[Rfam]
RNA: S-element
RNA sequence: UGUCAAGAGUCUUUGGCGCCGAUCAGGGCGAGUGGAUUUCUUUUGCCUUUGACGAGGUGAAGGAUAUG
Numbered sequence: 001u002g003u004c005a006a007g008a009g010u011c012u013u014u015g016g017c018g019c020c021g022a023u024c025a026g027g028g029c030g031a032g033u034g035g036a037u038u039u040c041u042u043u044u045g046c047c048u049u050u051g052a053c054g055a056g057g058u059g060a061a062g063g064a065u066a067u068g
Stems, first nucleotide, its partner, number of pairs: 009065006017059004023055002028050001030048001032046005